[Rfam]
RNA sequence: UUCAUUCACUACUAUAAUUCACUCUGGAUAAGAGUGUCUGCUAAAUGACUCAAA
Numbered sequence: 001u002u003c004a005u006u007c008a009c010u011a012c013u014a015u016a017a018u019u020c021a022c023u024c025u026g027g028a029u030a031a032g033a034g035u036g037u038c039u040g041c042u043a044a045a046u047g048a049c050u051c052a053a054a
Stems, first nucleotide, its partner, number of pairs: 013043001015040002020036006
RNA: UnaL2 LINE 3' element
Organism: Oncorhynchus mykiss